[Rfam]
RNA sequence: GUGCAGCGCGUCUAGGGUUCCGGCCGGUCUUCUGACCGGCGUCUGGUCCGAGAGACGCACUCCGGGGGAACAGCCCCGGAGACACGGCGGGCCAAAAUCCCGGGAGGU
Numbered sequence: 001g002u003g004c005a006g007c008g009c010g011u012c013u014a015g016g017g018u019u020c021c022g023g024c025c026g027g028u029c030u031u032c033u034g035a036c037c038g039g040c041g042u043c044u045g046g047u048c049c050g051a052g053a054g055a056c057g058c059a060c061u062c063c064g065g066g067g068g069a070a071c072a073g074c075c076c077c078g079g080a081g082a083c084a085c086g087g088c089g090g091g092c093c094a095a096a097a098u099c100c101c102g103g104g105a106g107g108u
Stems, first nucleotide, its partner, number of pairs: 008058005015049002020046002022043001023040006060081008083103001085106001089101003